Rfam assigns this 108-nucleotide RNA sequence from Paenibacillus macerans to the family "pan motif". Lineage of the source: Bacteria > Bacillati > Caryophanales > Paenibacillaceae > Paenibacillus. By type it is a cis-regulatory element.
RNA sequence: GAGGCGGUAUCGGCACACGUUCGAACUGCACUCCCCAGCAGCUGUAGGUUAAUGUGAUGAAGCCUGCGUUGGAUUCUGCUCUGAGCCGAAGAGGACCGAGACAGAAGG
Number, nucleotide and partner (000 for none) at each position: 001g033002a032003g031004g029005c028006g027007g026008u025009a000010u024011c023012g022013g021014c000015a000016c000017a000018c000019g000020u000021u013022c012023g011024a010025a008026c007027u006028g005029c004030a000031c003032u002033c001034c000035c000036c000037a000038g000039c000040a000041g000042c000043u000044g000045u000046a000047g000048g000049u000050u000051a000052a000053u000054g000055u000056g000057a000058u000059g000060a000061a000062g000063c000064c000065u000066g000067c000068g000069u000070u000071g000072g000073a000074u000075u000076c104077u103078g102079c100080u099081c098082u000083g096084a000085g000086c094087c093088g000089a000090a000091g000092a000093g087094g086095a000096c083097c000098g081099a080100g079101a000102c078103a077104g076105a000106a000107g000108g000